nhaA-I RNA: a 57-nucleotide RNA sequence from Sphingomonas sp. SRS2. Rfam classes the family as a riboswitch. Rfam's curators write: Acidobacteria, Alphaproteobacteria, Betaproteobacteria and Gammaproteobacteria, Verrucomicrobia, cand. division NC10. Lineage of the source: Bacteria > Pseudomonadati > Sphingomonadales > Sphingomonadaceae > Sphingomonas. Pairs were carried over by alignment from the consensus structure, which is taken from published work.
RNA sequence: GGGUGUCCGCUUGCAUGCUGCAGCGGACAGGUAUCUGUGCUGGUCGGGCCGCCAGCA
Dot-bracket structure: ....(((((((..........))))))).........(((((((......)))))))
Numbered sequence: 001g002g003g004u005g006u007c008c009g010c011u012u013g014c015a016u017g018c019u020g021c022a023g024c025g026g027a028c029a030g031g032u033a034u035c036u037g038u039g040c041u042g043g044u045c046g047g048g049c050c051g052c053c054a055g056c057a
Stems, first nucleotide, its partner, number of pairs: 005028007038057007